[Rfam]
Notes: A member of the RNA family "Glycine riboswitch aptamer" from Ureibacillus terrenus, 77 nucleotides long. NCBI's taxonomy places the organism under Bacteria, Bacillota, Bacilli, Caryophanales, Ureibacillus. A search with the family's covariance model found it, with a score of 51 bits.

RNA sequence: GGAGCAGCUUCUGGAGAGACCACGAUUUGUGGCGCCGAAGGAUUCACAAUCUCAGGCAAAAGGACAGAAGAGUAAUC
Numbered sequence: 001g002g003a004g005c006a007g008c009u010u011c012u013g014g015a016g017a018g019a020c021c022a023c024g025a026u027u028u029g030u031g032g033c034g035c036c037g038a039a040g041g042a043u044u045c046a047c048a049a050u051c052u053c054a055g056g057c058a059a060a061a062g063g064a065c066a067g068a069a070g071a072g073u074a075a076u077c
Base pairs, nucleotide, nucleotide: 008070009069010068011067012066013065020032021031022030023029034057035056036055037053038052041051042050043049
Dot-bracket structure: .......((((((......((((.....)))).(((((..(((.....))))).))).......)))))).......